[Rfam]
Nucleotides: 131
Stems, first nucleotide, its partner, number of pairs: 002057006016043003022037001025034001068125007082110003087105004
Number, partner (000 for none) and nucleotide at each position: 001000u002057g003056g004055g005054a006053g007052g008000c009000a010000g011000a012000u013000a014000c015000c016043u017042g018041g019000g020000c021000a022037g023000u024000c025034c026000u027000g028000a029000g030000u031000a032000g033000u034025g035000c036000u037022c038000u039000g040000u041018c042017c043016g044000u045000c046000a047000c048000u049000a050000g051000u052007c053006c054005u055004c056003c057002c058000u059000a060000c061000a062000g063000c064000a065000u066000c067000c068125c069124u070123g071122c072121u073120c074119u075000c076000u077000g078000a079000u080000g081000a082110c083109c084108g085000a086000g087105g088104c089103g090102a091000a092000c093000u094000g095000a096000g097000a098000g099000a100000a101000a102090u103089u104088g105087c106000c107000a108084c109083g110082g111000a112000c113000a114000g115000a116000u117000a118000c119074g120073g121072a122071g123070c124069a125068g126000a127000c128000a129000c130000u131000u
This 131-nucleotide RNA sequence from Gasterosteus aculeatus belongs to the Rfam family "Small Cajal body specific RNA 8". Rfam describes the family as follows. scaRNAs are a specific class of small nuclear RNAs which localise to the Cajal bodies and guide the modification of RNA polymerase II transcribed spliceosomal RNAs U1, U2, U4, U5 and U12. U92 belong to the H/ACA box class of guide RNAs as it has the predicted hairpin-hinge-hairpin-tail structure, conserved H/ACA-box motifs and is found associated with GAR1. It is one of the family's seed sequences. The family has 22 seed sequences and 955 matches in Rfam 15.1. For this family Rfam cites "RNomics: an experimental approach that identifies 201 candidates for novel, small, non-messenger RNAs in mouse" (Huttenhofer et al., EMBO J, 2001).